RNA sequence: GACAGGCGGGUGAUAAUCCCGUCCGCUGGAUGACUAAGGGUUCCGGGGCCACGUUCAACGUCCCCGGGUGAGUCGGGUCCUAAGGCGAGGCCGACAGGCGUAGUCGAAUGGAUGAACGGGUUGAUAUUCCCGUACCGGUGGUAUACCGUCAUAACUUGAGGCGCUGGUAGGGUGGUCCUGCUUGUUUUUUUCCUGUCUUUCGGGGUGGGAGAGAGGCGAGUGGUGUCAUUACUGGCUGGUGUAGUAGGGUAGCAGAGGAGUGACACAUGAGGAUAGCUGUCCAGCCCGGUGGUUGUGGUUGGCUAAGCGUGUGGGGCGUGUGAUAGGUAAAUCCGUCACGGUGUGCGUCUGAGGCGUGAUAGGCAUGAUCCUGUAAGGGGUUGUGUGAUGGUGGGUCCUUGUGUCGAGAAAAGCUUCGCUGUCAGGUGUGCUACCGCUCGUACCCUAAACCGACACAGGUGGUCAGGUAGAGUAUACUAAAGCGUU
Dot-bracket structure: ....((((((.......))))))((((....((((..((...((((((...((.....)).))))))......((((.((...(((.(.(((....))).).)))....))....(((((........)))))..(((((((((((.........................................................................................................((...(((((...((((..(((..(((((((((((..........))))))((..((((...(((..((((((.((.....)))))))).......)))...))))...)).((..(((((....)))))..))..)))))...)))..))))........)))))...))...)))))))))))))))..)).....((......)).)))).((((.....))))..))))..

Bacterial large subunit ribosomal RNA: a 486-nucleotide part of an RNA from Scardovia inopinata. The family's consensus secondary structure is taken from published work. The source organism's lineage runs through Bacteria, Bacillati, Actinomycetes, Scardovia and Scardovia inopinata. It is one of the family's seed sequences. Its family is annotated with structural constituent of ribosome and ribosome in the Gene Ontology.